[Rfam]
RNA sequence: UAAAGACUGCGUGACUGACGGACAAUAGGAGAGCUUACUCCAGAGAAGCGCAGUAUGUGAUUUGCCGACCGUCUGGGCACCGUCU
Numbered sequence: 001u002a003a004a005g006a007c008u009g010c011g012u013g014a015c016u017g018a019c020g021g022a023c024a025a026u027a028g029g030a031g032a033g034c035u036u037a038c039u040c041c042a043g044a045g046a047a048g049c050g051c052a053g054u055a056u057g058u059g060a061u062u063u064g065c066c067g068a069c070c071g072u073c074u075g076g077g078c079a080c081c082g083u084c085u
Stems, first nucleotide, its partner, number of pairs: 004056001006054007015045002017073005028041004063079004
Notes
Shown here is an 85-nucleotide RNA from Eshraghiella crossota, a member of the family "ZMP/ZTP riboswitch aptamer (pfl RNA motif)". Taxonomically the source falls in Eshraghiella crossota (Bacteria, Bacillota, Clostridia, Lachnospirales).